Rfam assigns this 101-nucleotide RNA from Paenibacillus sp. UNC496MF to the family "Purine riboswitch aptamer". The organism belongs to Paenibacillus, within Bacteria.
RNA sequence: AAAAAAUGUUGUCGAUCAUCUCGUAUAUCCUUGGGAAUCAGGCCCGAGAGUAUCUACCCGAGAACCUUAAUUUUCGGACUACGAGACACGCAAUGAAGAGC
Number, nucleotide and partner (000 for none) at each position: 001a000002a000003a000004a000005a000006a000007u000008g000009u000010u000011g000012u000013c000014g000015a000016u000017c000018a000019u086020c085021u084022c083023g082024u081025a080026u000027a000028u000029c000030c048031u047032u046033g045034g044035g043036a000037a000038u000039c000040a000041g000042g000043c035044c034045c033046g032047a031048g030049a000050g000051u000052a000053u000054c000055u000056a000057c000058c077059c076060g075061a074062g073063a072064a071065c000066c000067u000068u000069a000070a000071u064072u063073u062074u061075c060076g059077g058078a000079c000080u025081a024082c023083g022084a021085g020086a019087c000088a000089c000090g000091c000092a000093a000094u000095g000096a000097a000098g000099a000100g000101c000